Rfam assigns this 76-nucleotide RNA sequence from Orthoflavivirus bagazaense to the family "General Flavivirus exoribonuclease-resistant RNA element".
Rfam classes the family as a cis-regulatory element.
On this family, see Ng et al., Viruses 2017: "The 5' and 3' Untranslated Regions of the Flaviviral Genome".
The family's consensus secondary structure was predicted with LocARNA.
About the family: The exoribonuclease-resistant RNA elements (xrRNA) are described throughout all groups of flaviviruses.
Taxonomically the source falls in Orthoflavivirus bagazaense (Viruses, Riboviria, Flaviviridae, Euflavivirus).
RNA sequence: CAAAGUCCGGCCACAGGUUUUGUGUCACUAAUAUGCAGUGCUGCCUGAGCAAAGACAUGCCCCAGGUGGACUGGGU
Number, nucleotide and partner (000 for none) at each position: 001c000002a000003a000004a000005g050006u049007c000008c000009g045010g044011c043012c024013a023014c022015a021016g000017g000018u000019u000020u000021u015022g014023u013024g012025u000026c000027a000028c038029u037030a000031a000032u000033a000034u000035g000036c000037a029038g028039u000040g000041c000042u000043g011044c010045c009046u000047g000048a000049g006050c005051a000052a000053a000054g000055a000056c000057a000058u000059g000060c000061c075062c074063c073064a072065g071066g000067u000068g000069g000070a000071c065072u064073g063074g062075g061076u000